[Rfam]
Nucleotides: 142
Stems, first nucleotide, its partner, number of pairs: 008135006020052007054122003057118002061116003067109001
Number, partner (000 for none) and nucleotide at each position: 001000g002000c003000c004000g005000c006000c007000c008135u009134g010133u011132c012131a013130g014000g015000a016000g017000a018000g019000c020052g021051u022050u023049g024048g025047c026046u027000c028000g029000u030000g031000c032000c033000g034000g035000u036000u037000c038000g039000g040000u041000g042000c043000g044000a045000a046026g047025g048024u049023c050022g051021g052020c053000c054122g055121c056120c057118g058117a059000a060000g061116g062115c063114g064000c065000a066000g067109g068000u069000c070000u071000g072000g073000g074000a075000g076000c077000u078000g079000c080000a081000g082000g083000a084000g085000c086000g087000a088000u089000g090000u091000c092000u093000c094000a095000g096000g097000c098000a099000g100000c101000c102000g103000a104000c105000g106000g107000g108000u109067c110000c111000g112000a113000a114063c115062g116061c117058u118057c119000a120056g121055g122054c123000a124000a125000a126000a127000g128000g129000a130013c131012u132011g133010g134009c135008a136000a137000a138000c139000a140000c141000g142000g

Notes: The record is a 142-nucleotide RNA from Aquabacterium commune, which matches "Glycine riboswitch aptamer" in Rfam. Taxonomically the source falls in Aquabacterium (Bacteria, Pseudomonadati, Pseudomonadota, Betaproteobacteria). About the family: This family represents the bacterial glycine riboswitch.